[Rfam]
RNA sequence: UCUCAGUCUGUGGCGCUCAGCCUUGGGGGCACUUUCUGGUGCCAGAAUGAAAGUGCUGUCAUAGCUGAGGUCCAAUGACUGAGG
Dot-bracket structure: .((((.((..(((..((((((..(((.(((((((((............))))))))).)))..))))))..)))..)).)))).